[Rfam]
The family of this 86-nucleotide RNA from Mesocricetus auratus is "Small nucleolar RNA SNORD11".
Lineage of the source: Eukaryota > Craniata > Teleostomi > Eutheria > Mesocricetus.
The family's RNA type in Rfam is C/D-box small nucleolar RNA.
Its family is annotated with nucleolus and RNA processing in the Gene Ontology.
RNA sequence: UGGUACAAUGAUGAUUCCUGUUGCUUUGCCUGAUUUCUUUUUGAAUAAUGAGGGCAUCUUCAGUCACUACCUCUUCUGAAAGACUG
Number, nucleotide and partner (000 for none) at each position: 001u086002g085003g084004u083005a000006c000007a000008a000009u000010g000011a000012u000013g000014a000015u000016u000017c000018c000019u000020g000021u000022u000023g000024c000025u000026u000027u000028g000029c000030c000031u000032g000033a000034u000035u000036u000037c000038u000039u000040u000041u000042u000043g000044a000045a000046u000047a000048a000049u000050g000051a000052g000053g000054g000055c000056a000057u000058c000059u000060u000061c000062a000063g000064u000065c000066a000067c000068u000069a000070c000071c000072u000073c000074u000075u000076c000077u000078g000079a000080a000081a000082g000083a004084c003085u002086g001